[Rfam]
This 262-nucleotide RNA from Eisenbergiella massiliensis belongs to the Rfam family "Bacterial large signal recognition particle RNA". Lineage of the source: Bacteria > Bacillota > Clostridia > Lachnospirales > Eisenbergiella. The family is grouped with related families in Rfam's "SRP clan". For this family Rfam cites "Prediction of signal recognition particle RNA genes" (Regalia et al., Nucleic Acids Res, 2002). The base pairs follow the family's consensus structure, which is taken from published work.
RNA sequence: CCGUGCAGCCGGGGGAUUAGCGGUCUCCUGUACCUGAAAUCCGCUAUAGCAGGGGUGAUGUCCGGCCGAGGGCUUGUGCCUGUGUGGCUGCCCUUUAUAAGUGGCGUUGAAGUUUGGGUCUUACGCAACGGAUGUCUGCGAACCGUGUCAGGUUGGGAACAAAGCAGCACUAAGCAGAAUUUUCCGUGUGCCGUGAGGGUGCCUGGCGGAGUUAACUGUAAAGGUAACGCAUAUGGGUUUGUGUUCGAAGCAGGACGCACGG
Numbered sequence: 001c002c003g004u005g006c007a008g009c010c011g012g013g014g015g016a017u018u019a020g021c022g023g024u025c026u027c028c029u030g031u032a033c034c035u036g037a038a039a040u041c042c043g044c045u046a047u048a049g050c051a052g053g054g055g056u057g058a059u060g061u062c063c064g065g066c067c068g069a070g071g072g073c074u075u076g077u078g079c080c081u082g083u084g085u086g087g088c089u090g091c092c093c094u095u096u097a098u099a100a101g102u103g104g105c106g107u108u109g110a111a112g113u114u115u116g117g118g119u120c121u122u123a124c125g126c127a128a129c130g131g132a133u134g135u136c137u138g139c140g141a142a143c144c145g146u147g148u149c150a151g152g153u154u155g156g157g158a159a160c161a162a163a164g165c166a167g168c169a170c171u172a173a174g175c176a177g178a179a180u181u182u183u184c185c186g187u188g189u190g191c192c193g194u195g196a197g198g199g200u201g202c203c204u205g206g207c208g209g210a211g212u213u214a215a216c217u218g219u220a221a222a223g224g225u226a227a228c229g230c231a232u233a234u235g236g237g238u239u240u241g242u243g244u245u246c247g248a249a250g251c252a253g254g255a256c257g258c259a260c261g262g
Stems, first nucleotide, its partner, number of pairs: 001262006008056003011029008033053004061255003065251002070246004076240001078238008089226002093223006101216002103213003112207002115205005120197006126188002129186004135178005145170004153162003